[Rfam]
RNA: raiA RNA
RNA sequence: UAUGCCCGUGUCUGUGGUUGAAAAUCCAGGCCAGUCGCGGGCAAAGGGAUCCACGUAAGCGAAUCUUUCAGCGAUUCGUGAGCAUGGCGCGGCUUAGAAGUAAGUCCUGUGAAAAAUACUAAAAAACACAUGUUCACAGGCGAGUGUGGGGGCAAAGACCAGGUCAGGCGGGCAUA
Numbered sequence: 001u002a003u004g005c006c007c008g009u010g011u012c013u014g015u016g017g018u019u020g021a022a023a024a025u026c027c028a029g030g031c032c033a034g035u036c037g038c039g040g041g042c043a044a045a046g047g048g049a050u051c052c053a054c055g056u057a058a059g060c061g062a063a064u065c066u067u068u069c070a071g072c073g074a075u076u077c078g079u080g081a082g083c084a085u086g087g088c089g090c091g092g093c094u095u096a097g098a099a100g101u102a103a104g105u106c107c108u109g110u111g112a113a114a115a116a117u118a119c120u121a122a123a124a125a126a127c128a129c130a131u132g133u134u135c136a137c138a139g140g141c142g143a144g145u146g147u148g149g150g151g152g153c154a155a156a157g158a159c160c161a162g163g164u165c166a167g168g169c170g171g172g173c174a175u176a
Base pairs, nucleotide, nucleotide: 001176002175003174004173005172006171007170008169009168012167013166014165015161016160017159018158019157028147030145031041033094034093035092036091037090038089039088050087051086058079061076062075064073085154106140107139108138109137110136111135112134113133